[Rfam]
RNA sequence: AUAAAUUAUUAAUAAAUAGCUCAUAUACUUCUGAUAAUAUGGUUCAGAUGUUUCUACGAGAUAACCUUAAAUAUUCUCGCUAUGGGUAAAUCGAUAAUUGCA
Numbered sequence: 001a002u003a004a005a006u007u008a009u010u011a012a013u014a015a016a017u018a019g020c021u022c023a024u025a026u027a028c029u030u031c032u033g034a035u036a037a038u039a040u041g042g043u044u045c046a047g048a049u050g051u052u053u054c055u056a057c058g059a060g061a062u063a064a065c066c067u068u069a070a071a072u073a074u075u076c077u078c079g080c081u082a083u084g085g086g087u088a089a090a091u092c093g094a095u096a097a098u099u100g101c102a
Stems, first nucleotide, its partner, number of pairs: 019087007030048005058078004064072001
Dot-bracket structure: ..................(((((((....(((((.........))))).........((((..(.......)..))))..)))))))...............
This 102-nucleotide sequence from Clostridiaceae bacterium 14S0207 belongs to the Rfam family "Purine riboswitch aptamer". The base pairs follow the family's consensus structure, which is taken from published work. Taxonomically the source falls in Clostridiaceae (Bacteria, Bacillati, Bacillota, Clostridia).